[Rfam]
RNA sequence: AUUGCAUUAAGAGCGGCGUGAGGGAACUGGCCCGGCGAGCGUCCGGCAACCUGAAAAGAACGCAGGUGCCAAGGCCAGGCUUUGCAGCGCAAAGCAACGAUGUGUU
Numbered sequence: 001a002u003u004g005c006a007u008u009a010a011g012a013g014c015g016g017c018g019u020g021a022g023g024g025a026a027c028u029g030g031c032c033c034g035g036c037g038a039g040c041g042u043c044c045g046g047c048a049a050c051c052u053g054a055a056a057a058g059a060a061c062g063c064a065g066g067u068g069c070c071a072a073g074g075c076c077a078g079g080c081u082u083u084g085c086a087g088c089g090c091a092a093a094g095c096a097a098c099g100a101u102g103u104g105u106u
Stems, first nucleotide, its partner, number of pairs: 001106001003104006013044001015043004022033003027078004045070004050066002052062002074098001079095006
A member of the RNA family "SAM riboswitch aptamer (S box leader)" from Verrucomicrobia bacterium S94, 106 nucleotides long. A search with the family's covariance model found it, with a score of 60 bits. Pairs were carried over by alignment from the consensus structure, which is taken from published work. The source organism's lineage runs through Bacteria, Pseudomonadati and Verrucomicrobiota. Rfam describes the family as follows. The SAM riboswitch is found upstream of a number of genes which code for proteins involved in methionine or cysteine biosynthesis in Gram-positive bacteria.